small nucleolar RNA snoR134: a 145-nucleotide sequence from Castanea mollissima. By type it is an H/ACA-box small nucleolar RNA. The match comes from Rfam's covariance-model search (52 bits). Lineage of the source: Eukaryota > Embryophyta > Tracheophyta > Euphyllophyta > Castanea.
RNA sequence: CUGCAGAAUGCACACCCCAGGCUUCUCUGAAAUUAUCAAUUCAUGACAAAAGCCCCAUUGCUUGUGCCAAAAUGAUGAUGUUGGUAUUGCAGUUCAGGUGUUCUCUUCACUCCAUGGCUCAGCUGCAUCAAUCAUUGCCACAUCU
Number, nucleotide and partner (000 for none) at each position: 001c000002u000003g067004c066005a065006g000007a063008a062009u000010g061011c060012a000013c000014a000015c000016c000017c000018c000019a000020g054021g053022c052023u051024u049025c000026u046027c045028u000029g000030a000031a000032a000033u000034u000035a000036u000037c000038a000039a000040u000041u000042c000043a000044u000045g027046a026047c000048a000049a024050a000051a023052g022053c021054c020055c000056c000057a000058u000059u000060g011061c010062u008063u007064g000065u005066g004067c003068c000069a000070a000071a000072a000073u000074g000075a000076u000077g000078a000079u000080g138081u137082u134083g000084g000085u130086a000087u000088u127089g126090c125091a124092g123093u122094u000095c000096a000097g118098g000099u116100g000101u000102u000103c000104u000105c000106u000107u000108c000109a000110c000111u000112c000113c000114a000115u000116g099117g000118c097119u000120c000121a000122g093123c092124u091125g090126c089127a088128u000129c000130a085131a000132u000133c000134a082135u000136u000137g081138c080139c000140a000141c000142a000143u000144c000145u000

Rfam links the family to the GO terms nucleolus and RNA processing.